Rfam assigns this 254-nucleotide sequence from Aureliella helgolandensis to the family "Group II catalytic intron D1-D4-6". Rfam describes the family as follows. Group II introns are found in rRNA, tRNA and mRNA of organelles in fungi, plants and protists, and also in mRNA in bacteria. The pairing is the family consensus, mapped onto this sequence. The source organism's lineage runs through Bacteria, Pseudomonadati, Planctomycetia, Pirellulaceae and Aureliella. For this family Rfam cites "The ins and outs of group II introns" (Bonen and Vogel, Trends Genet, 2001).
[Rfam]
RNA sequence: GGAGUCCCGCCUGAGCAGCUCCGAGCCCGAGGCUCAGUAGCGAUUGUUGCAGCGUGCCUGGUAACAGUCACGUUGAAGCGUACACAGAAAGGUAGCGAGGUUGAAAGGUAUCGACUGACUGUCGAACCCUGAACGGUAUUGAGCCCUGAAAUUUGGUUAUUGUCGGAUCCUACCCAAGGUAUGUUCACACUGGACGCCAAUACUGACUAUCGCGUUUUGGCAAGCGAUAUUCAGACACCCGGGGUCGAAGGCCC
Numbered sequence: 001g002g003a004g005u006c007c008c009g010c011c012u013g014a015g016c017a018g019c020u021c022c023g024a025g026c027c028c029g030a031g032g033c034u035c036a037g038u039a040g041c042g043a044u045u046g047u048u049g050c051a052g053c054g055u056g057c058c059u060g061g062u063a064a065c066a067g068u069c070a071c072g073u074u075g076a077a078g079c080g081u082a083c084a085c086a087g088a089a090a091g092g093u094a095g096c097g098a099g100g101u102u103g104a105a106a107g108g109u110a111u112c113g114a115c116u117g118a119c120u121g122u123c124g125a126a127c128c129c130u131g132a133a134c135g136g137u138a139u140u141g142a143g144c145c146c147u148g149a150a151a152u153u154u155g156g157u158u159a160u161u162g163u164c165g166g167a168u169c170c171u172a173c174c175c176a177a178g179g180u181a182u183g184u185u186c187a188c189a190c191u192g193g194a195c196g197c198c199a200a201u202a203c204u205g206a207c208u209a210u211c212g213c214g215u216u217u218u219g220g221c222a223a224g225c226g227a228u229a230u231u232c233a234g235a236c237a238c239c240c241g242g243g244g245u246c247g248a249a250g251g252c253c254c
Stems, first nucleotide, its partner, number of pairs: 012036004019031003025221002038090001041087001045084003048080002050075007058067003140248001141246001143245006165239002168237001171235001174196001178191003203234004208229006